[Rfam]
RNA: MIR159 microRNA precursor family
Organism: Medicago truncatula
RNA sequence: UUAGGAAGCAAAGAGCUCCUUUCUUUCCAAUACGAAGGGCUAAGUAGAGGCAAGAGCUGUCAUCUCAUGCAUCCGGAUAAACUUAAAUGUUUGUCGGCUACACGACAUGAAGUUUGACCAAGUGCAUGAUAUGAGAGCAACUCCACCUUUCUGCUUAGUCCUACCAUUGGAUUGAAGGGAGUUCUAUGUUUCACUUUA
Numbered sequence: 001u002u003a004g005g006a007a008g009c010a011a012a013g014a015g016c017u018c019c020u021u022u023c024u025u026u027c028c029a030a031u032a033c034g035a036a037g038g039g040c041u042a043a044g045u046a047g048a049g050g051c052a053a054g055a056g057c058u059g060u061c062a063u064c065u066c067a068u069g070c071a072u073c074c075g076g077a078u079a080a081a082c083u084u085a086a087a088u089g090u091u092u093g094u095c096g097g098c099u100a101c102a103c104g105a106c107a108u109g110a111a112g113u114u115u116g117a118c119c120a121a122g123u124g125c126a127u128g129a130u131a132u133g134a135g136a137g138c139a140a141c142u143c144c145a146c147c148u149u150u151c152u153g154c155u156u157a158g159u160c161c162u163a164c165c166a167u168u169g170g171a172u173u174g175a176a177g178g179g180a181g182u183u184c185u186a187u188g189u190u191u192c193a194c195u196u197u198a
Stems, first nucleotide, its partner, number of pairs: 013184008023174001026171004057137002060134003066128004